[Rfam]
RNA sequence: UAUCAUCUAUGAUGAGCGAACGGAAAAUAAUUACGAGUAUAUGAAUCUGUGAUGAAAAGUCUUUGUUGCCUUCCUUCUGAGAUGAUA
Number, nucleotide and partner (000 for none) at each position: 001u087002a086003u085004c084005a083006u000007c000008u000009a000010u000011g000012a000013u000014g000015a000016g000017c000018g000019a000020a000021c000022g000023g000024a000025a000026a000027a000028u000029a000030a000031u000032u000033a000034c000035g000036a000037g000038u000039a000040u000041a000042u000043g000044a000045a000046u000047c000048u000049g000050u000051g000052a000053u000054g000055a000056a000057a000058a000059g000060u000061c000062u000063u000064u000065g000066u000067u000068g000069c000070c000071u000072u000073c000074c000075u000076u000077c000078u000079g000080a000081g000082a000083u005084g004085a003086u002087a001
Shown here is an 87-nucleotide RNA sequence from Chara braunii, a member of the family "Small nucleolar RNA U83B". Its family is annotated with nucleolus and RNA processing in the Gene Ontology. On this family, see Jady and Kiss, Nucleic Acids Res 2000: "Characterisation of the U83 and U84 small nucleolar RNAs: two novel 2'-O-ribose methylation guide RNAs that lack complementarities to ribosomal RNAs". The pairing is the family consensus, mapped onto this sequence. By type it is a C/D-box small nucleolar RNA. The match comes from Rfam's covariance-model search (36 bits). About the family: U83B belongs to the C/D family of snoRNAs. U83B like U83A has no documented RNA target and they share the same host gene with the C/D box snoRNA U43 (RPL3). N.B. U83A/B/C have no sequence similarity with the U83 snoRNA that was cloned by Jady and Kiss (2000). Lineage of the source: Eukaryota > Streptophyta > Streptophytina > Charophyceae > Chara.